Rfam assigns this 90-nucleotide RNA to the family "nadA riboswitch".
[Rfam]
RNA sequence: GACUGCAACAACCCCGUGGGUGGGGCGCAGCCUGAAGGCAUUGGCCUAUCAGCCAAUCACCUCAGAUUGCACAGUGCAUCCACUGCAGUC
Dot-bracket structure: (((((((.....[[.((((((((.(.((((.((((..........................)))).)))).).])]))))))))))))))